A member of the RNA family "mir-595 microRNA precursor family" from Pan troglodytes, 86 nucleotides long. Rfam links the family to the GO terms miRNA-mediated post-transcriptional gene silencing and RISC complex.
RNA sequence: AAGCCUGCACGCAUUUAACACCAGCACGCUCAACGUAGUCUUGUAAGGAACAGGUUGAAGUGUGCCGUGGUGUGUCUGGAGGAAGC
Dot-bracket structure: ...(((.((.((.....(((((((((((((((((.(..((((...))))..).)))).)))))))..)))))))).)).)))....